Annotation:
The record is a 600-nucleotide part of an RNA from Corynebacterium aquatimens, which matches "Bacterial large subunit ribosomal RNA" in Rfam. A search with the family's covariance model found it, with a score of 2614 bits.
Nucleotides: 600
Stems, first nucleotide, its partner, number of pairs: 007600010022585001023550002027521002029518009038174002046108003049062003068102007077090003113122003123142007144171002146168007178209001179207005189196002219226002229507001230257005240248002260504004268306011313446003318440005350428012364413003370385005388392001394407003452476008483498005537544002560571004
Number, partner (000 for none) and nucleotide at each position: 001000u002000g003000u004000u005000a006000a007600g008599g009598g010597c011596g012595c013594a014593u015592g016591g017000u018000g019000g020000a021000u022585g023550c024549c025000u026000u027521g028520g029518c030517a031516u032515g033514c034513u035512g036511a037510g038174c039173c040000g041000a042000u043000g044000a045000a046108g047107g048106a049062c050061g051060u052000g053000u054000c055000u056000g057000g058000c059000u060051g061050c062049g063000u064000u065000a066000a067000u068102c069101c070100u071099u072098g073097g074096g075000g076000a077090g078089u079088u080000g081000c082000c083000g084000u085000g086000u087000a088079a089078g090077c091000g092000u093000u094000g095000a096074u097073c098072c099071g100070a101069g102068g103000g104000u105000g106048u107047c108046c109000g110000a111000a112000u113122g114121g115120g116000g117000a118000a119000a120115c121114c122113u123142a124141g125140c126139a127138c128137c129136g130000g131000u132000u133000g134000u135000g136129u137128g138127g139126u140125g141124u142123u143000a144171c145170c146168u147167g148166c149165a150164a151163g152162u153000g154000a155000a156000u157000u158000c159000a160000u161000a162152g163151c164150u165149u166148g167147u168146g169000u170145g171144g172000g173039g174038g175000u176000g177000a178209c179207g180206u181205a182204g183203g184000g185000a186000a187000g188000u189196g190195a191000a192000a193000c194000a195190u196189c197000u198000c199000a200000g201000u202000a203183c204182c205181u206180a207179c208000a209178g210000g211000a212000g213000a214000a215000g216000a217000a218000a219226a220225c221000a222000a223000u224000u225220g226219u227000g228000a229507u230257u231256c232255c233254g234253u235000g236000u237000g238000u239000a240248g241247u242000g243000g244000c245000g246000a247241g248240c249000g250000a251000u252000a253234g254233c255232g256231g257230a258000u259000g260504a261503g262502g263501c264000u265000a266000a267000a268306c269305c270304g271303u272302g273301u274300g275299c276298g277297u278296g279000u280000g281000a282000u283000a284000c285000c286000u287000g288000g289000c290000a291000g292000g293000g294000g295000u296278u297277g298276c299275g300274u301273g302272u303271g304270c305269g306268g307000g308000g309000u310000u311000g312000u313446g314445g315444g316000g317000u318440g319439u320438g321437a322436u323000u324000g325000u326000c327000a328000c329000u330000u331000a332000c333000u334000g335000c336000c337000a338000u339000a340000a341000g342000u343000g344000g345000g346000u347000g348000u349000g350428c351427g352426u353425g354424g355423u356422g357421u358420g359419g360418u361417u362000a363000a364413g365412c366411g367000g368000a369000a370385u371384c372383g373382u374381u375000u376000g377000g378000g379000a380000u381374g382373a383372c384371g385370a386000a387000c388392u389000g390000g391000a392388a393000a394407a395406g396405g397000u398000g399000a400000u401000c402000a403000g404000u405396c406395c407394u408000g409000u410000a411366c412365g413364u414000g415000a416000u417361g418360g419359c420358c421357a422356u423355g424354c425353u426352g427351c428350g429000u430000g431000u432000g433000c434000u435000g436322g437321u438320u439319g440318u441000a442000u443000c444315c445314c446313c447000g448000a449000g450000u451000a452476g453475c454474a455473g456472c457471g458470g459469g460000c461000u462000c463000g464000u465000g466000g467000a468000a469459u470458c471457u472456g473455c474454u475453g476452u477000g478000a479000a480000u481000c482000u483498g484497c485496c486495g487494g488000g489000a490000c491000c492000a493000c494487c495486c496485g497484g498483u499000a500000a501263g502262c503261c504260u505000a506000a507229a508000u509000a510037c511036u512035c513034a514033g515032u516031g517030u518029g519000a520028c521027c522000g523000a524000u525000a526000g527000c528000g529000g530000a531000u532000g533000a534000g535000u536000a537544c538543c539000g540000u541000g542000a543538g544537g545000g546000a547000a548000u549024g550023g551000u552000g553000a554000a555000a556000a557000g558000u559000a560571c561570c562569c563568c564000g565000g566000g567000a568563g569562g570561g571560g572000a573000g574000u575000g576000a577000a578000a579000g580000a581000g582000u583000u584000c585022c586000u587000g588000a589000a590000a591016c592015u593014g594013u595012g596011u597010g598009u599008c600007u